[Rfam]
RNA: Group II catalytic intron D1-D4-4
Organism: Paenibacillus abyssi
RNA sequence: CAGCCGGUGCAAGUCCGGUCAAAGGAGGGGCCAAGCCCCUGUAUAGCCAGGAUACCUACGUAUGGUGAAAUCUGUGCGUAGAAGCGUAUCGAAAAGUAUCUGUCUGAGGCAGGGCGAGCGACAAGUCAGGCCGUAACAUCA
Numbered sequence: 001c002a003g004c005c006g007g008u009g010c011a012a013g014u015c016c017g018g019u020c021a022a023a024g025g026a027g028g029g030g031c032c033a034a035g036c037c038c039c040u041g042u043a044u045a046g047c048c049a050g051g052a053u054a055c056c057u058a059c060g061u062a063u064g065g066u067g068a069a070a071u072c073u074g075u076g077c078g079u080a081g082a083a084g085c086g087u088a089u090c091g092a093a094a095a096g097u098a099u100c101u102g103u104c105u106g107a108g109g110c111a112g113g114g115c116g117a118g119c120g121a122c123a124a125g126u127c128a129g130g131c132c133g134u135a136a137c138a139u140c141a
Stems, first nucleotide, its partner, number of pairs: 021042001023040002051090005056081006065072001099113005118134003